Shown here is a 304-nucleotide sequence from Populus tomentosa, a member of the family "Plant signal recognition particle RNA". A search with the family's covariance model found it, with a score of 234 bits. It is annotated as a non-coding RNA gene. Rfam links the family to the GO terms signal recognition particle, endoplasmic reticulum targeting and SRP-dependent cotranslational protein targeting to membrane, signal sequence recognition.

RNA sequence: GCUGAGCUCGGUAACGUGAGCUUGUAAUCCUAGUGGAGGCUUUAAAGUGAUGGAGCGUUGACCAUGCUUGAAAGGUCGGGUUCAGAUUGGCUCCUAUCUGGUCUGCCCGUUCCAAGCCAGGAGUUGAGCCCAGGCACCCUAGUGAAGACCUGGGUGUCGUGGCUCCUAGAGUGGAGGGCACAGCGUGAGGCUGGUCUCACAGAGCAGCGAUUACCUUCCACUCUUGGCAGUGGAAGGAUUACGGGCCGGUGCUACCUGGAUCUGCAUGGCUGGAUGAGCUAGUCCUAAUUGGACCAUCACUUUU
Numbered sequence: 001g002c003u004g005a006g007c008u009c010g011g012u013a014a015c016g017u018g019a020g021c022u023u024g025u026a027a028u029c030c031u032a033g034u035g036g037a038g039g040c041u042u043u044a045a046a047g048u049g050a051u052g053g054a055g056c057g058u059u060g061a062c063c064a065u066g067c068u069u070g071a072a073a074g075g076u077c078g079g080g081u082u083c084a085g086a087u088u089g090g091c092u093c094c095u096a097u098c099u100g101g102u103c104u105g106c107c108c109g110u111u112c113c114a115a116g117c118c119a120g121g122a123g124u125u126g127a128g129c130c131c132a133g134g135c136a137c138c139c140u141a142g143u144g145a146a147g148a149c150c151u152g153g154g155u156g157u158c159g160u161g162g163c164u165c166c167u168a169g170a171g172u173g174g175a176g177g178g179c180a181c182a183g184c185g186u187g188a189g190g191c192u193g194g195u196c197u198c199a200c201a202g203a204g205c206a207g208c209g210a211u212u213a214c215c216u217u218c219c220a221c222u223c224u225u226g227g228c229a230g231u232g233g234a235a236g237g238a239u240u241a242c243g244g245g246c247c248g249g250u251g252c253u254a255c256c257u258g259g260a261u262c263u264g265c266a267u268g269g270c271u272g273g274a275u276g277a278g279c280u281a282g283u284c285c286u287a288a289u290u291g292g293a294c295c296a297u298c299a300c301u302u303u304u
Base pairs, nucleotide, nucleotide: 001040002039003038004023005022006021007020008019009018010017028037029036030035044303045302046301047300048299049298050297051296052295053294056291057290058288059287060286061283062282064280068277069276070275074271075270076269077268079262080261081260082259083258084257085256088254089253090252092251098249099248100247101246102245103244104243105242107237108236110235111234112233113232114231116228117227118226119225120224121223122222123221124220126165127164128163129162130161133158134157135156136155137154138153139152142149143148166171173218174217175216176215177214182211184209185208186207191202192201193200